[Rfam]
RNA sequence: UGAUUGUCCAAACGCAAUUCUUGUGAAAAUUCAAAUCCUACCCGAGAAUUGUGCCUGGACAUCUGUUGCUGG
Numbered sequence: 001u002g003a004u005u006g007u008c009c010a011a012a013c014g015c016a017a018u019u020c021u022u023g024u025g026a027a028a029a030u031u032c033a034a035a036u037c038c039u040a041c042c043c044g045a046g047a048a049u050u051g052u053g054c055c056u057g058g059a060c061a062u063c064u065g066u067u068g069c070u071g072g
Stems, first nucleotide, its partner, number of pairs: 002063003006060005013053011
A member of the RNA family "mir-219 microRNA precursor family" from Takifugu rubripes, 72 nucleotides long. Rfam 15.1 lists 1,318 matches to the family in 774 species. NCBI's taxonomy places the organism under Eukaryota, Vertebrata, Percomorphaceae, Tetraodontiformes, Takifugu. The literature on the family includes a 2003 paper in Genome Biol by Lai et al., "Computational identification of Drosophila microRNA genes". Pairs were carried over by alignment from the consensus structure, which was predicted with RNAalifold. It is one of the family's seed sequences.